[Rfam]
Shown here is a 63-nucleotide RNA from Musa balbisiana, a member of the family "Plastid-clpP 5UTR RNA". Plastid clpP is a non-coding RNA (ncRNA) recognised in plastids. It is annotated as a cis-regulatory element. For this family Rfam cites "Retrograde signaling in plants: A critical review focusing on the GUN pathway and beyond" (Richter et al., Plant Commun, 2023). A search with the family's covariance model found it, with a score of 62 bits.

RNA sequence: AAUUGUGUAAGAACAAAGGAAGCAGACUAUUCUAUACCCGAUAAGUACCAAUACGCAAUGGGA
Numbered sequence: 001a002a003u004u005g006u007g008u009a010a011g012a013a014c015a016a017a018g019g020a021a022g023c024a025g026a027c028u029a030u031u032c033u034a035u036a037c038c039c040g041a042u043a044a045g046u047a048c049c050a051a052u053a054c055g056c057a058a059u060g061g062g063a
Base pairs, nucleotide, nucleotide: 004017006015007014008013037062038061039060045054046053047052